[Rfam]
RNA sequence: AUCAUCGAGUGAUGAAAUAUGGAAUAUAAAUCUUAGGACACCUUCCUACACAGCUUUCAAGAAUUGGCUGUGGAUGAGAAUCACUAUUUCUAUUCUGACGAUGAU
Numbered sequence: 001a002u003c004a005u006c007g008a009g010u011g012a013u014g015a016a017a018u019a020u021g022g023a024a025u026a027u028a029a030a031u032c033u034u035a036g037g038a039c040a041c042c043u044u045c046c047u048a049c050a051c052a053g054c055u056u057u058c059a060a061g062a063a064u065u066g067g068c069u070g071u072g073g074a075u076g077a078g079a080a081u082c083a084c085u086a087u088u089u090c091u092a093u094u095c096u097g098a099c100g101a102u103g104a105u
Stems, first nucleotide, its partner, number of pairs: 001105007046061001
RNA: Small nucleolar RNA snoR31/Z110/Z27